[Rfam]
Shown here is a 78-nucleotide RNA from Chlorocebus sabaeus, a member of the family "mir-350 microRNA precursor family". The source organism's lineage runs through Eukaryota, Dipnotetrapodomorpha, Euarchontoglires, Catarrhini and Chlorocebus. The match comes from Rfam's covariance-model search (63 bits). On this family, see Poy et al., Nature 2004: "A pancreatic islet-specific microRNA regulates insulin secretion".
RNA sequence: GCUCCUACAAGAGUGAAGUGCAGGGACUUUGGGACAGUGAGGAAAAUAAAGCCCAUACACUUUGACCCUUUAGGAGAG
Dot-bracket structure: .((((((.(((.((((((((......(((((...............)))))......)))))).)).)))))))))..
Numbered sequence: 001g002c003u004c005c006u007a008c009a010a011g012a013g014u015g016a017a018g019u020g021c022a023g024g025g026a027c028u029u030u031g032g033g034a035c036a037g038u039g040a041g042g043a044a045a046a047u048a049a050a051g052c053c054c055a056u057a058c059a060c061u062u063u064g065a066c067c068c069u070u071u072a073g074g075a076g077a078g
Stems, first nucleotide, its partner, number of pairs: 002076006009070003013066002015063006027051005